Rfam assigns this 128-nucleotide RNA sequence to the family "Small nucleolar RNA SNORA40". Rfam 15.1 lists 2,550 matches to the family in 517 species. Rfam links the family to the GO terms RNA processing and nucleolus. The base pairs follow the family's consensus structure, which was predicted with RNAalifold. The family's RNA type in Rfam is H/ACA-box small nucleolar RNA. About the family: The snoRNA ACA 40 belongs to the H/ACA family of snoRNAs and guides the pseudouridylation of 28S rRNA subunit at position U4565. NB This family has a high threshold value to exclude a large number of closely related sequences that do not appear to have conserved H and ACA boxes, and may be pseudogenes.
Nucleotides: 128
Base pairs, nucleotide, nucleotide: 001055002054003053004052005051006050007049008048009047011045014040015039016038017037018036019035020034021033026031064125065124066123067122068121070119071118072117073116074115080107081106082105083104084103085102086101087100088099089098
Number, partner (000 for none) and nucleotide at each position: 001055u002054g003053c004052a005051c006050u007049u008048a009047u010000g011045u012000a013000u014040g015039u016038u017037u018036u019035u020034g021033u022000u023000u024000a025000a026031c027000u028000u029000g030000u031026g032000g033021a034020c035019a036018a037017a038016g039015a040014c041000u042000u043000a044000u045011g046000g047009a048008u049007a050006g051005g052004u053003g054002c055001a056000a057000a058000a059000a060000a061000u062000a063000a064125a065124u066123c067122c068121u069000c070119u071118u072117u073116u074115g075000c076000a077000a078000c079000c080107c081106a082105g083104a084103a085102c086101u087100c088099a089098u090000u091000g092000u093000u094000c095000a096000g097000u098089a099088u100087g101086a102085g103084u104083u105082u106081u107080g108000a109000u110000a111000c112000a113000u114000a115074u116073a117072a118071g119070a120000a121068g122067g123066g124065a125064u126000a127000u128000u